[Rfam]
RNA sequence: AACUGAAAAAGGCAAACCAUUUGAAAGGAUGGGACGCAAAGCCUAGGAGCCUGACACCGGAUUAACCCGGGAAUGGCCGUCCAGCUGCCAGA
Numbered sequence: 001a002a003c004u005g006a007a008a009a010a011g012g013c014a015a016a017c018c019a020u021u022u023g024a025a026a027g028g029a030u031g032g033g034a035c036g037c038a039a040a041g042c043c044u045a046g047g048a049g050c051c052u053g054a055c056a057c058c059g060g061a062u063u064a065a066c067c068c069g070g071g072a073a074u075g076g077c078c079g080u081c082c083a084g085c086u087g088c089c090a091g092a
Stems, first nucleotide, its partner, number of pairs: 012037002017032006040086003044083001046082003049077003057070003
RNA: c-di-GMP-I riboswitch aptamer